[Rfam]
RNA sequence: CGCCGCUUGGUGCAUCAUUAUCAACCUCCCUGUUGGACUUCGGCCGAGCUUUGUGCUCGGCCUUUUUU
Numbered sequence: 001c002g003c004c005g006c007u008u009g010g011u012g013c014a015u016c017a018u019u020a021u022c023a024a025c026c027u028c029c030c031u032g033u034u035g036g037a038c039u040u041c042g043g044c045c046g047a048g049c050u051u052u053g054u055g056c057u058c059g060g061c062c063u064u065u066u067u068u
Stems, first nucleotide, its partner, number of pairs: 008023005042062008
Rfam assigns this 68-nucleotide RNA sequence from Primorskyibacter sedentarius to the family "Singlet oxygen resistance RNA X". For this family Rfam cites "Regulation of a polyamine transporter by the conserved 3' UTR-derived sRNA SorX confers resistance to singlet oxygen and organic hydroperoxides in Rhodobacter sphaeroides" (Peng et al., RNA Biol, 2016). Its family is annotated with response to photooxidative stress in the Gene Ontology. Lineage of the source: Bacteria > Pseudomonadati > Pseudomonadota > Roseobacteraceae > Primorskyibacter. SorX (RSs2461)like SorY is a singlet oxygen induced sRNA that counteracts oxidative stress by targeting mRNA for a transporter in Rhodobacter. It also has an impact on resistance against organic hydroperoxides. It targets SD sequence of potA mRNA via an aSD sequence. The aSD sequence and some neighbouring nucleotides are identical to the one of SorY (targets takP mRNA). The match comes from Rfam's covariance-model search (51 bits).